Shown here is a 96-nucleotide RNA from Myotis brandtii, a member of the family "Vault RNA".
The organism belongs to Myotis, within Eukaryota.
Rfam describes the family as follows. This family of RNAs are found as part of the enigmatic vault ribonucleoprotein complex. The complex consists of a major vault protein (MVP), two minor vault proteins (VPARP and TEP1), and several small untranslated RNA molecules. It has been suggested that the vault complex is involved in drug resistance.
RNA sequence: GAGCUGGCUUUAGCUCAGUAGUUCCUUUGAAUCACUUGCCAACCACUCCUGCUUGCAAGGGUGGUUUGAGAUCCGAGGGUGCCCUCCAGCUCUAUA
Numbered sequence: 001g002a003g004c005u006g007g008c009u010u011u012a013g014c015u016c017a018g019u020a021g022u023u024c025c026u027u028u029g030a031a032u033c034a035c036u037u038g039c040c041a042a043c044c045a046c047u048c049c050u051g052c053u054u055g056c057a058a059g060g061g062u063g064g065u066u067u068g069a070g071a072u073c074c075g076a077g078g079g080u081g082c083c084c085u086c087c088a089g090c091u092c093u094a095u096a
Base pairs, nucleotide, nucleotide: 002091003090004089005088006087007086013080014079015078016077019075021073026070027069028068029067030066
The base pairs follow the family's consensus structure, which is taken from published work.